Rfam assigns this 356-nucleotide sequence from Nitratireductor mangrovi to the family "Alphaproteobacteria transfer-messenger RNA". Rfam classes the family as a non-coding RNA gene.
Nucleotides: 356
Stems, first nucleotide, its partner, number of pairs: 040054005058194005070185005083173003087170003093109005110155007195210004200221003204218003322337004328353006
Number, partner (000 for none) and nucleotide at each position: 001000g002000g003000g004000c005000u006000u007000u008000u009000c010000a011000u012000u013000u014000g015000c016000c017000g018000g019000c020000c021000g022000c023000g024000c025000a026000c027000c028000u029000a030000u031000a032000u033000u034000c035000g036000c037000c038000c039000u040054g041053u042052c043051a044050g045000c046000u047000u048000g049000a050044c051043u052042g053041a054040c055000u056000a057000u058194g059193g060192c061191g062190a063000u064000a065000a066000a067000c068000u069000g070185c071184c072183g073182a074181u075000g076000c077000a078000a079000u080000a081000a082000g083173c084172c085171u086000a087170u088169c089168g090000g091000a092000c093109c094108c095107g096106g097105g098000g099000g100000c101000g102000g103000u104000a105097c106096c107095c108094g109093g110155c111154g112153c113152c114151u115150c116149c117000a118000c119000c120000a121000c122000a123000a124000a125000c126000c127000g128000c129000g130000c131000u132000g133000c134000g135000a136000c137000g138000c139000g140000g141000c142000u143000u144000c145000u146000g147000a148000u149116g150115g151114g152113g153112g154111c155110g156000a157000a158000a159000u160000a161000g162000g163000a164000u165000c166000g167000a168089c169088g170087a171085g172084g173083g174000u175000g176000u177000a178000a179000a180000g181074a182073u183072c184071g185070g186000a187000c188000u189000u190062u191061c192060g193059c194058u195210c196209g197208g198207c199000a200221u201220g202219g203000u204218u205217c206216c207198g208197c209196c210195g211000u212000u213000a214000u215000c216206g217205g218204g219202c220201c221200g222000a223000a224000c225000u226000u227000a228000u229000a230000g231000u232000u233000g234000c235000c236000a237000a238000c239000g240000a241000c242000a243000a244000c245000u246000a247000u248000g249000c250000g251000g252000a253000a254000g255000c256000a257000c258000g259000u260000c261000u262000c263000g264000c265000u266000g267000c268000u269000u270000a271000a272000u273000g274000c275000g276000g277000c278000g279000c280000g281000a282000c283000a284000g285000c286000u287000u288000c289000a290000a291000u292000u293000g294000a295000a296000c297000u298000c299000c300000u301000a302000g303000g304000g305000g306000u307000u308000c309000g310000c311000a312000c313000c314000u315000c316000u317000a318000g319000g320000c321000g322337g323336g324335g325334u326000u327000c328353g329352g330351a331350g332349g333348c334325a335324c336323c337322u338000g339000g340000c341000a342000a343000c344000a345000g346000a347000a348333g349332c350331c351330u352329c353328c354000a355000c356000u
The match comes from Rfam's covariance-model search (309 bits). Rfam's curators write: Bacterial tmRNA, also known as 10Sa RNA or SsrA, is named for its dual tRNA and mRNA-like properties. Its role is to liberate the mRNA from a stalled ribosome. To accomplish this part of the tmRNA is used as a reading frame that ends in a translation stop signal. The broken mRNA is replaced in the ribosome by the tmRNA and translation of the tmRNA leads to addition of a proteolysis tag to the incomplete protein enabling recognition by a protease.